[Rfam]
RNA sequence: AGCAGCCCAUAACUCCGAGCUUUGUUCACUAAGUUGCCGCCUUUUGUGUUCUGUAAUAUGGACCUGUGUCGGUAAUAAGGGACCAACGCCAGUGACAGUCUGUCACCAGGGUCGAUUUAGAAAUGAAUCGGCCUCCCGUAUUUGGAAAGGUGUUCCGUGGCGAAACAA
Number, nucleotide and partner (000 for none) at each position: 001a000002g000003c162004a000005g000006c159007c000008c000009a000010u000011a154012a153013c152014u000015c150016c149017g000018a000019g089020c088021u000022u086023u085024g084025u000026u082027c081028a000029c079030u000031a000032a000033g076034u075035u074036g073037c072038c071039g070040c000041c000042u000043u000044u000045u000046g000047u000048g000049u000050u000051c000052u000053g000054u000055a000056a000057u000058a000059u000060g000061g000062a000063c000064c000065u000066g000067u000068g000069u000070c039071g038072g037073u036074a035075a034076u033077a000078a000079g029080g000081g027082a026083c000084c024085a023086a022087c000088g020089c019090c000091a000092g106093u105094g104095a103096c102097a000098g000099u000100c000101u000102g096103u095104c094105a093106c092107c000108a000109g134110g133111g132112u131113c130114g129115a128116u127117u126118u125119a124120g000121a000122a000123a000124u119125g118126a117127a116128u115129c114130g113131g112132c111133c110134u109135c145136c144137c000138g000139u000140a000141u000142u000143u000144g136145g135146a000147a000148a000149g016150g015151u000152g013153u012154u011155c000156c000157g000158u000159g006160g000161c000162g003163a000164a000165a000166c000167a000168a000